[Rfam]
RNA sequence: CUCUUAUCAAGAAUGGUGGAGGGACUGGCCCUGUGAAACCUAACAACCGGCAAAGUGUACGGUGUUAAUUCCUGCAAAACUUGUUUGUUUUGAGAGAUAAGAA
Numbered sequence: 001c002u003c004u005u006a007u008c009a010a011g012a013a014u015g016g017u018g019g020a021g022g023g024a025c026u027g028g029c030c031c032u033g034u035g036a037a038a039c040c041u042a043a044c045a046a047c048c049g050g051c052a053a054a055g056u057g058u059a060c061g062g063u064g065u066u067a068a069u070u071c072c073u074g075c076a077a078a079a080c081u082u083g084u085u086u087g088u089u090u091u092g093a094g095a096g097a098u099a100a101g102a103a
Stems, first nucleotide, its partner, number of pairs: 002102007013041001015040003021031003025074001027072002042066004047062002050058003070095001075092006
RNA: SAM riboswitch aptamer (S box leader)